[Rfam]
Nucleotides: 329
Stems, first nucleotide, its partner, number of pairs: 006024006025327004033307004039287002044068006053061002075283004080112002085107003092099002116133005136279011147262002152257005160244004166237001171233005177198006199223002293302002309321004
Number, partner (000 for none) and nucleotide at each position: 001000g002000a003000u004000a005000a006024u007023g008022a009021g010020g011019g012000c013000g014000a015000g016000a017000a018000a019011c020010c021009c022008u023007c024006a025327c026326g027325c028324c029000g030000a031000a032000a033307g034306a035305c036304u037000a038000a039287g040286g041000u042000u043000u044068c045067c046066u047065c048064a049063g050000c051000u052000a053061u054060g055000c056000u057000a058000a059000u060054c061053a062000a063049c064048u065047g066046a067045g068044g069000g070000u071000u072000a073000g074000u075283c076282g077281g078280g079000g080112g081111c082000u083000a084000a085107g086106g087105g088000u089000c090000u091000a092099g093098c094000g095000a096000g097000a098093g099092c100000g101000a102000c103000a104000a105087c106086c107085u108000a109000a110000u111081g112080c113000a114000c115000a116133a117132c118131a119130g120129g121000u122000u123000a124000a125000u126000a127000u128000u129120c130119c131118u132117g133116u134000a135000c136279u137278u138277a139276c140275u141274u142273a143272u144271u145270g146269g147262g148261c149000a150000a151000a152257u153256a154255g155254a156253u157000g158000a159000c160244g161243g162242a163241g164000a165000g166237a167000a168000u169000g170000g171233g172232u173231u174230a175229c176000c177198a178197g179196a180195u181194a182193c183000u184000g185000a186000c187000g188000g189000a190000a191000u192000a193182g194181u195180g196179u197178c198177u199223u200222u201000g202000a203000g204000a205000g206000g207000c208000g209000g210000c211000a212000g213000c214000a215000a216000u217000g218000c219000c220000a221000a222200a223199a224000c225000g226000a227000g228000u229175g230174u231173a232172g233171c234000g235000a236000g237166u238000g239000a240000u241163c242162u243161u244160c245000c246000a247000a248000g249000a250000a251000a252000a253156g254155u255154c256153u257152a258000g259000g260000c261148g262147u263000g264000u265000a266000u267000a268000a269146c270145u271144a272143a273142u274141a275140a276139g277138u278137a279136a280078c281077c282076c283075g284000u285000a286040c287039c288000g289000u290000a291000a292000a293302c294301c295000g296000a297000c298000a299000c300000a301294g302293g303000u304036g305035g306034u307033c308000g309321a310320g311319a312318a313000g314000a315000a316000u317000a318312u319311u320310c321309u322000a323000a324028g325027g326026c327025g328000c329000u
Rfam assigns this 329-nucleotide part of an RNA from Aquirufa nivalisilvae to the family "Bacterial large subunit ribosomal RNA". The base pairs follow the family's consensus structure, which is taken from published work. The organism belongs to Aquirufa, within Bacteria.